[Rfam]
RNA sequence: ACACCCAGGGAUAGAACAGCAGUUCACUUUGAAGUCCCCUUUUCUAUCCCUGGUACCAG
Number, nucleotide and partner (000 for none) at each position: 001a000002c000003a000004c000005c053006c052007a051008g050009g049010g048011a047012u046013a045014g000015a043016a042017c000018a040019g039020c000021a000022g036023u000024u000025c000026a000027c000028u000029u000030u000031g000032a000033a000034g000035u000036c022037c000038c000039c019040u018041u000042u016043u015044c000045u013046a012047u011048c010049c009050c008051u007052g006053g005054u000055a000056c000057c000058a000059g000
Background
Rfam assigns this 59-nucleotide sequence from Monodelphis domestica to the family "mir-1544 microRNA precursor family". Rfam links the family to the GO terms RISC complex and miRNA-mediated post-transcriptional gene silencing. Taxonomically the source falls in Monodelphis (Eukaryota, Bilateria, Teleostomi, Didelphimorphia).